[Rfam]
Notes:
A member of the RNA family "L31-Gammaproteobacteria ribosomal protein leader" from Psychrosphaera haliotis, 60 nucleotides long.

RNA sequence: CGUAUGGUAUUCGGCAUUAUUUUUAAUAAGUGACCGUUUGGCGAUACGGCCCAAUGAGGU
Numbered sequence: 001c002g003u004a005u006g007g008u009a010u011u012c013g014g015c016a017u018u019a020u021u022u023u024u025a026a027u028a029a030g031u032g033a034c035c036g037u038u039u040g041g042c043g044a045u046a047c048g049g050c051c052c053a054a055u056g057a058g059g060u
Stems, first nucleotide, its partner, number of pairs: 001048005007042002012036003015032004